Background
A member of the RNA family "Antizyme RNA frameshifting stimulation element" from Cercocebus atys, 58 nucleotides long. Pairs were carried over by alignment from the consensus structure, which is taken from published work. A search with the family's covariance model found it, with a score of 65 bits. The family's RNA type in Rfam is frameshift element. Taxonomically the source falls in Cercocebus (Eukaryota, Deuterostomia, Euteleostomi, Theria). Rfam's curators write: This family represents a structural element which is found in antizyme mRNA and is known to promote frameshifting. Antizyme genes have have two partially overlapping open reading frames, the second, which encodes the functional protein requires +1 translational frameshifting. This frameshift is stimulated by a pseudoknot present 3' of the frameshift site in the antizyme mRNA. The frameshifting efficiency is dependent on the level of polyamines in the cell, when the polyamine concentration is high frameshifting is more likely to occur which leads to an increase in the quantity of functional antizyme produced. The functional antizyme acts to reduce ornithine decarboxylase (ODC) activity which leads to a drop in polyamines present in the cell.
RNA sequence: UGAUGCCCCUCACCCACCCCUGAAAAUCCCAGGUGGGUAGGGAAUAGUCAGAGGAAUC
Numbered sequence: 001u002g003a004u005g006c007c008c009c010u011c012a013c014c015c016a017c018c019c020c021u022g023a024a025a026a027u028c029c030c031a032g033g034u035g036g037g038u039a040g041g042g043a044a045u046a047g048u049c050a051g052a053g054g055a056a057u058c
Stems, first nucleotide, its partner, number of pairs: 007042004013037006026057002029054002